Shown here is a 71-nucleotide sequence from Callithrix jacchus, a member of the family "mir-503 microRNA precursor family". Pairs were carried over by alignment from the consensus structure, which was predicted with RNAalifold. Gene Ontology terms of the family: miRNA-mediated post-transcriptional gene silencing and RISC complex. Taxonomically the source falls in Callithrix (Eukaryota, Deuterostomia, Mammalia, Callithrix).
[Rfam]
RNA sequence: UGCUCUAGCAGCGAAAACAGUUCUGCAGUUAGCUAUCAAUACUCUGGAGUAUUGUUUCCGCUGCCAGAGUA
Numbered sequence: 001u002g003c004u005c006u007a008g009c010a011g012c013g014a015a016a017a018c019a020g021u022u023c024u025g026c027a028g029u030u031a032g033c034u035a036u037c038a039a040u041a042c043u044c045u046g047g048a049g050u051a052u053u054g055u056u057u058c059c060g061c062u063g064c065c066a067g068a069g070u071a
Stems, first nucleotide, its partner, number of pairs: 002070004008064006015057007023049002026046003031043002